This 118-nucleotide sequence from Oryzicola mucosus belongs to the Rfam family "Alphaproteobacterial ar14". Its family is annotated with biological process involved in symbiotic interaction in the Gene Ontology. The match comes from Rfam's covariance-model search (75 bits). From the family's description: Smr14C2 was renamed NfeR1 (Nodule Formation Efficiency RNA) highly expressed in salt stress and during the symbiotic interaction on legume roots. Rfam classes the family as a small RNA.
[Rfam]
RNA sequence: GGUGGUCGGCCAUCUACUCCUCCCAGAUGCGAUGCCGACGCCCGAAGGCGGCGAACCUCCUCCCUCGCCUCCUUUAGAAUUGAGCCCGCUGCACCUCCUCCCGCAGCGGGCUUUUUCU
Numbered sequence: 001g002g003u004g005g006u007c008g009g010c011c012a013u014c015u016a017c018u019c020c021u022c023c024c025a026g027a028u029g030c031g032a033u034g035c036c037g038a039c040g041c042c043c044g045a046a047g048g049c050g051g052c053g054a055a056c057c058u059c060c061u062c063c064c065u066c067g068c069c070u071c072c073u074u075u076a077g078a079a080u081u082g083a084g085c086c087c088g089c090u091g092c093a094c095c096u097c098c099u100c101c102c103g104c105a106g107c108g109g110g111c112u113u114u115u116u117c118u
Base pairs, nucleotide, nucleotide: 007037008036009035011029012028013027044075045074046073047072048071050069051068052067053066082113083112084111085110086109087108088107089106090105091104092103